[Rfam]
RNA: Alphaproteobacteria transfer-messenger RNA
RNA sequence: GCGUUUGCACCGGCGCGCGCGGCUCCCUAUAUCCAAUGUGUCGGGUUCGCCCGACUAUGGCGAUAAAUCGCGGCGUAGACUAGAUGCAGCGGACCCGGGGGCAGUACCCGGCGACUCCACCAUUUGCACCGCCGCCCACCUGCUUUCAGCGGGGAAGGGGCGGUUCAGCUGACGGGGUCGAACCAGGAUCGACGUGUAUUGAAAGGCGCCGUUUUUGCUCGGAAUGGGACCACCGCAACGGCCCAUUACACAAGUGCCAACGAUAACGAAGCACUCGCGAUUGCGGCGUAACUAAGGGCCUCACGGCCUAAGGUUACUCCAAGAUAGCGCGGUUGGACCGCACCGGGCAACAGAAGCGGAUUCC
Numbered sequence: 001g002c003g004u005u006u007g008c009a010c011c012g013g014c015g016c017g018c019g020c021g022g023c024u025c026c027c028u029a030u031a032u033c034c035a036a037u038g039u040g041u042c043g044g045g046u047u048c049g050c051c052c053g054a055c056u057a058u059g060g061c062g063a064u065a066a067a068u069c070g071c072g073g074c075g076u077a078g079a080c081u082a083g084a085u086g087c088a089g090c091g092g093a094c095c096c097g098g099g100g101g102c103a104g105u106a107c108c109c110g111g112c113g114a115c116u117c118c119a120c121c122a123u124u125u126g127c128a129c130c131g132c133c134g135c136c137c138a139c140c141u142g143c144u145u146u147c148a149g150c151g152g153g154g155a156a157g158g159g160g161c162g163g164u165u166c167a168g169c170u171g172a173c174g175g176g177g178u179c180g181a182a183c184c185a186g187g188a189u190c191g192a193c194g195u196g197u198a199u200u201g202a203a204a205g206g207c208g209c210c211g212u213u214u215u216u217g218c219u220c221g222g223a224a225u226g227g228g229a230c231c232a233c234c235g236c237a238a239c240g241g242c243c244c245a246u247u248a249c250a251c252a253a254g255u256g257c258c259a260a261c262g263a264u265a266a267c268g269a270a271g272c273a274c275u276c277g278c279g280a281u282u283g284c285g286g287c288g289u290a291a292c293u294a295a296g297g298g299c300c301u302c303a304c305g306g307c308c309u310a311a312g313g314u315u316a317c318u319c320c321a322a323g324a325u326a327g328c329g330c331g332g333u334u335g336g337a338c339c340g341c342a343c344c345g346g347g348c349a350a351c352a353g354a355a356g357c358g359g360a361u362u363c364c
Stems, first nucleotide, its partner, number of pairs: 040055005059219005070212007085198003089195003095111005112180007220235003225245003230241002330345004336362002339359001